[Rfam]
RNA: Alphaproteobacterial ar15
RNA sequence: AUCUUAGCGUUGCGUUUCCUCCUCCCAUUUGCGCGCGCUAAGUGUUCCCCUCUGGAGGUUCGCCUUAAAGGCACCUUCAAAAUUCAAAGCCAGACAUUUGUCUGGCUUUUUUUU
Numbered sequence: 001a002u003c004u005u006a007g008c009g010u011u012g013c014g015u016u017u018c019c020u021c022c023u024c025c026c027a028u029u030u031g032c033g034c035g036c037g038c039u040a041a042g043u044g045u046u047c048c049c050c051u052c053u054g055g056a057g058g059u060u061c062g063c064c065u066u067a068a069a070g071g072c073a074c075c076u077u078c079a080a081a082a083u084u085c086a087a088a089g090c091c092a093g094a095c096a097u098u099u100g101u102c103u104g105g106c107u108u109u110u111u112u113u114u
Stems, first nucleotide, its partner, number of pairs: 001043001003042003007038003012034004053079007086109010